[Rfam]
RNA sequence: ACGCGCAUAAGACCUGUCCGAGGCUAUGAUGCCCAUGGACUUGGGAUGGGAGCGAGUAGGACAGGCACGCAC
Numbered sequence: 001a002c003g004c005g006c007a008u009a010a011g012a013c014c015u016g017u018c019c020g021a022g023g024c025u026a027u028g029a030u031g032c033c034c035a036u037g038g039a040c041u042u043g044g045g046a047u048g049g050g051a052g053c054g055a056g057u058a059g060g061a062c063a064g065g066c067a068c069g070c071a072c
Stems, first nucleotide, its partner, number of pairs: 003070003013065007032045004
Dot-bracket structure: ..(((.......(((((((............((((......)))).............)))))))..)))..
RNA: DUF3800-X RNA